[Rfam]
RNA sequence: CCUGUAGGACAGGGGAUGUGGCCCAUUUCUCACUGCCCCUGCUCAGCAAACACAGGGCUGAACCACAGA
Numbered sequence: 001c002c003u004g005u006a007g008g009a010c011a012g013g014g015g016a017u018g019u020g021g022c023c024c025a026u027u028u029c030u031c032a033c034u035g036c037c038c039c040u041g042c043u044c045a046g047c048a049a050a051c052a053c054a055g056g057g058c059u060g061a062a063c064c065a066c067a068g069a
Base pairs, nucleotide, nucleotide: 001013002012003011004010005009014064015063020059021058022057023056024055
The record is a 69-nucleotide sequence from Sula dactylatra, which matches "eL15-Euryarchaeota ribosomal protein leader" in Rfam. NCBI's taxonomy places the organism under Eukaryota, Deuterostomia, Gnathostomata, Sarcopterygii, Sula. Pairs were carried over by alignment from the consensus structure, which is taken from published work.